[Rfam]
A member of the RNA family "Alphaproteobacterial sRNA BjrC1505" from Fulvimarina endophytica, 160 nucleotides long. It is annotated as a small RNA.

RNA sequence: CGUCCCCUUCAUUCUCGAUCAAGGUUUACGCGCUUUAAUGAUGACAGUACGAAAUUUCGGAUCGUCUUCGAGACAUCGUACAGACGGCGCGCCUUCGGGCGCAUCGUUUGACGCCUCCCUGUUGAAACUUUUCAGAGCCGUCCCCGACGGCUCUUUUUUU
Numbered sequence: 001c002g003u004c005c006c007c008u009u010c011a012u013u014c015u016c017g018a019u020c021a022a023g024g025u026u027u028a029c030g031c032g033c034u035u036u037a038a039u040g041a042u043g044a045c046a047g048u049a050c051g052a053a054a055u056u057u058c059g060g061a062u063c064g065u066c067u068u069c070g071a072g073a074c075a076u077c078g079u080a081c082a083g084a085c086g087g088c089g090c091g092c093c094u095u096c097g098g099g100c101g102c103a104u105c106g107u108u109u110g111a112c113g114c115c116u117c118c119c120u121g122u123u124g125a126a127a128c129u130u131u132u133c134a135g136a137g138c139c140g141u142c143c144c145c146g147a148c149g150g151c152u153c154u155u156u157u158u159u160u
Stems, first nucleotide, its partner, number of pairs: 001043004015037001021034001024031002047081006087104001089102004110123004134154009

A search with the family's covariance model found it, with a score of 50 bits.